[Rfam]
mir-190 microRNA precursor family: a 76-nucleotide RNA from Enhydra lutris. It scores 81 bits against the family's covariance model. The family's consensus secondary structure was predicted with RNAalifold. NCBI's taxonomy places the organism under Eukaryota, Deuterostomia, Gnathostomata, Theria, Enhydra lutris. A reference for the family is Kloosterman et al. (2006), "Cloning and expression of new microRNAs from zebrafish", Nucleic Acids Res. Clan: mir-50 clan.
RNA sequence: GUUUCUGUGUGAUAUGUUUGAUAUUCGGUUGUUUAAUUAGGAACCAACUAAAUAUCGAACAUAUUCUUACAGAGGU
Dot-bracket structure: ....(((((.(((((((((((((((.(((((.............))))).)))))))))))))))..)))))....
Numbered sequence: 001g002u003u004u005c006u007g008u009g010u011g012a013u014a015u016g017u018u019u020g021a022u023a024u025u026c027g028g029u030u031g032u033u034u035a036a037u038u039a040g041g042a043a044c045c046a047a048c049u050a051a052a053u054a055u056c057g058a059a060c061a062u063a064u065u066c067u068u069a070c071a072g073a074g075g076u
Stems, first nucleotide, its partner, number of pairs: 005072005011065015027049005